[Rfam]
RNA sequence: UAUUAGCUUGAUGCAAAAGUAAUCACGGUUUUUGCCAUUGAAAGUAGUGGCAAAAACCGUGAUUACUUUUGCACCAACCUAAUA
Numbered sequence: 001u002a003u004u005a006g007c008u009u010g011a012u013g014c015a016a017a018a019g020u021a022a023u024c025a026c027g028g029u030u031u032u033u034g035c036c037a038u039u040g041a042a043a044g045u046a047g048u049g050g051c052a053a054a055a056a057c058c059g060u061g062a063u064u065a066c067u068u069u070u071g072c073a074c075c076a077a078c079c080u081a082a083u084a
Base pairs, nucleotide, nucleotide: 001084002083003082004081005080006079008077009076010075012073013072014071015070016069017068018067019066020065021064022063023062024061025060026059027058028057029056030055031054032053033052034051035050036049037048038047039046040045
RNA: mir-548 microRNA precursor family
Organism: Sapajus apella